[Rfam]
RNA sequence: AACACGCUCCUUAGAUCCACCUCUGGGGAGUUUCUCCGCUCCGGUUCUGUCGUGUUCUCUCUCUGGGAGCAGCAGGAUCGGGCCGGAGGCUCCCAGCAGCUUUACGGCUGUACAGUUGGAGGUGCUUGAGUCAUUGGCGUGUGAGAUCAGUCUACCUGCUCACCCAGAAUCCUCUCUGCCCUGAUCCUUCACAGGAAAUCGCCAGGGCAGAACAGCUGGAUAGCAGACAAA
Number, nucleotide and partner (000 for none) at each position: 001a000002a142003c141004a140005c139006g138007c137008u136009c000010c130011u129012u128013a127014g126015a000016u000017c000018c124019a123020c122021c121022u120023c119024u118025g117026g094027g093028g092029a091030g090031u000032u000033u000034c000035u087036c086037c085038g084039c000040u000041c081042c080043g079044g078045u000046u000047c075048u074049g073050u072051c000052g000053u069054g000055u000056u068057c067058u066059c065060u000061c000062u000063c000064u000065g059066g058067g057068a056069g053070c000071a000072g050073c049074a048075g047076g000077a000078u044079c043080g042081g041082g000083c000084c038085g037086g036087a035088g000089g000090c030091u029092c028093c027094c026095a000096g111097c110098a109099g108100c107101u106102u000103u000104a000105c000106g101107g100108c099109u098110g097111u096112a000113c000114a000115g000116u000117u025118g024119g023120a022121g021122g020123u019124g018125c000126u014127u013128g012129a011130g010131u000132c000133a000134u000135u000136g008137g007138c006139g005140u004141g003142u002143g000144a000145g000146a000147u000148c000149a000150g000151u000152c000153u000154a000155c000156c226157u225158g224159c223160u222161c000162a000163c219164c000165c000166a000167g000168a000169a000170u000171c000172c000173u000174c000175u211176c210177u209178g208179c207180c206181c205182u204183g000184a000185u000186c000187c000188u000189u000190c000191a000192c000193a000194g000195g000196a000197a000198a000199u000200c000201g000202c000203c000204a182205g181206g180207g179208c178209a177210g176211a175212a000213c000214a000215g000216c000217u000218g000219g163220a000221u000222a160223g159224c158225a157226g156227a000228c000229a000230a000231a000
RNA: Small nucleolar RNA SNORA53
Organism: Sinocyclocheilus rhinocerous